[Rfam]
RNA sequence: ACUCGACUAGACGAGUAUAAACUACAUUAAGCCUAGUGCGUUAUAGCCGUAAAUAAGAAGUAAACGGCUAUAGGUUGUA
Numbered sequence: 001a002c003u004c005g006a007c008u009a010g011a012c013g014a015g016u017a018u019a020a021a022c023u024a025c026a027u028u029a030a031g032c033c034u035a036g037u038g039c040g041u042u043a044u045a046g047c048c049g050u051a052a053a054u055a056a057g058a059a060g061u062a063a064a065c066g067g068c069u070a071u072a073g074g075u076u077g078u079a
Stems, first nucleotide, its partner, number of pairs: 001016004006037005023079004031039001041073010

A member of the RNA family "Pistol ribozyme", 79 nucleotides long. Rfam's curators put it in the seed alignment. For this family Rfam cites "New classes of self-cleaving ribozymes revealed by comparative genomics analysis" (Weinberg et al., Nat Chem Biol, 2015).